[Rfam]
RNA sequence: UGCCACGAUGAUGACAUUUAUUUGCUACUCUUGACUGGGAGGAUGAUGAGAAUCUUCACCACCAUUUUACUAACUGAGGCA
Number, nucleotide and partner (000 for none) at each position: 001u081002g080003c079004c078005a000006c000007g000008a000009u000010g000011a000012u000013g000014a000015c000016a000017u000018u000019u000020a000021u000022u000023u000024g000025c000026u000027a000028c000029u000030c000031u000032u000033g000034a000035c000036u000037g000038g000039g000040a000041g000042g000043a000044u000045g000046a000047u000048g000049a000050g000051a000052a000053u000054c000055u000056u000057c000058a000059c000060c000061a000062c000063c000064a000065u000066u000067u000068u000069a000070c000071u000072a000073a000074c000075u000076g000077a000078g004079g003080c002081a001
RNA: Small nucleolar RNA SNORD24
Organism: Tupaia belangeri